[Rfam]
RNA sequence: CGCCUAAACUCACGGUUACGUCCGUGGGCAUGGCAUAAAAACUAUUUGCACAUAGAGAUGGUCAUCCGUCUUGCUUCUGUGCAAAUAGUUACUGCCCGAAAGGGUAGUAGGUAGCUUCCGCAAGGGACUACC
Numbered sequence: 001c002g003c004c005u006a007a008a009c010u011c012a013c014g015g016u017u018a019c020g021u022c023c024g025u026g027g028g029c030a031u032g033g034c035a036u037a038a039a040a041a042c043u044a045u046u047u048g049c050a051c052a053u054a055g056a057g058a059u060g061g062u063c064a065u066c067c068g069u070c071u072u073g074c075u076u077c078u079g080u081g082c083a084a085a086u087a088g089u090u091a092c093u094g095c096c097c098g099a100a101a102g103g104g105u106a107g108u109a110g111g112u113a114g115c116u117u118c119c120g121c122a123a124g125g126g127a128c129u130a131c132c
Stems, first nucleotide, its partner, number of pairs: 002034003009028007042088011055072007090109008110132005
Background
A member of the RNA family "LOOT RNA", 132 nucleotides long. Rfam's curators put it in the seed alignment. By type it is a small RNA.